[Rfam]
RNA: tRNA
RNA sequence: GGUCGUGUGGCCCAGUGGUUAAGGCAUGUGCUUUACACGCACAGGAUCGCAGGUUCGAUCCCUGCCACGAUCA
Numbered sequence: 001g002g003u004c005g006u007g008u009g010g011c012c013c014a015g016u017g018g019u020u021a022a023g024g025c026a027u028g029u030g031c032u033u034u035a036c037a038c039g040c041a042c043a044g045g046a047u048c049g050c051a052g053g054u055u056c057g058a059u060c061c062c063u064g065c066c067a068c069g070a071u072c073a
Stems, first nucleotide, its partner, number of pairs: 001072007010025003027043005049065005